The family of this 71-nucleotide RNA sequence from Branchiostoma floridae is "Small nucleolar RNA SNORD2". Rfam links the family to the GO terms RNA processing and nucleolus. The base pairs follow the family's consensus structure, which was predicted with WAR. The family has 17 seed sequences and 1,116 matches in Rfam 15.1.
[Rfam]
RNA sequence: AGAAGUGAUGAUGUUUGACCAUCUUUCGGGGCUGACCCUGCUGGUGACAACAUAACCCUUACUGAACUUCU
Dot-bracket structure: ((((((...........................................................))))))